A member of the RNA family "Small nucleolar RNA SNORD42" from Atlantisia rogersi, 67 nucleotides long.

RNA sequence: GUGCAAAUGAUGUGAAUAUUUUUUACCACUGAGCAAGGUGAUGUUUCCAAAGGAACCACUGAUGCAC
Numbered sequence: 001g002u003g004c005a006a007a008u009g010a011u012g013u014g015a016a017u018a019u020u021u022u023u024u025a026c027c028a029c030u031g032a033g034c035a036a037g038g039u040g041a042u043g044u045u046u047c048c049a050a051a052g053g054a055a056c057c058a059c060u061g062a063u064g065c066a067c
Base pairs, nucleotide, nucleotide: 001067002066003065004064005063
A reference for the family is Huttenhofer et al. (2001), "RNomics: an experimental approach that identifies 201 candidates for novel, small, non-messenger RNAs in mouse", EMBO J. Rfam classes the family as a C/D-box small nucleolar RNA. Rfam's curators write: snoRNA U42 is found in intron 3 of the ribosomal protein L23a (RPL23a) gene in humans and is also present in mice. Lineage of the source: Eukaryota > Bilateria > Coelurosauria > Neoaves > Atlantisia.